[Rfam]
A member of the RNA family "small nucleolar RNA snoR135" from Lupinus angustifolius, 148 nucleotides long. Its family is annotated with nucleolus and RNA processing in the Gene Ontology. For this family Rfam cites "Mining small RNA sequencing data: a new approach to identify small nucleolar RNAs in Arabidopsis" (Chen and Wu, Nucleic Acids Res, 2009).
RNA sequence: AAAGCAGGGAUUGUGUGUAUCGGUGUUGUGCUAUGAUUAAUGCAUUCUUUCCGAAAGAGUUCCCUGCAAUAUCAUUCUUGAGAAAAUGGGCAGUUGUUUUUCAUUUUUUUUCCUAUUGAAAUUCACAACAAUCAUUUUCCCUACAUUU
Number, nucleotide and partner (000 for none) at each position: 001a000002a000003a000004g067005c066006a065007g064008g063009g062010a061011u000012u000013g000014u000015g045016u044017g043018u042019a041020u040021c000022g000023g000024u000025g000026u000027u000028g000029u000030g000031c000032u000033a000034u000035g000036a000037u000038u000039a000040a020041u019042g018043c017044a016045u015046u000047c000048u000049u000050u000051c000052c000053g000054a000055a000056a000057g000058a000059g000060u000061u010062c009063c008064c007065u006066g005067c004068a000069a000070u000071a000072u000073c000074a000075u000076u000077c000078u000079u000080g141081a000082g139083a138084a137085a136086a135087u134088g133089g132090g000091c000092a000093g129094u128095u127096g126097u000098u000099u000100u000101u000102c000103a000104u000105u000106u000107u000108u000109u000110u000111u000112c000113c000114u000115a000116u000117u000118g000119a000120a000121a000122u000123u000124c000125a000126c096127a095128a094129c093130a000131a000132u089133c088134a087135u086136u085137u084138u083139c082140c000141c080142u000143a000144c000145a000146u000147u000148u000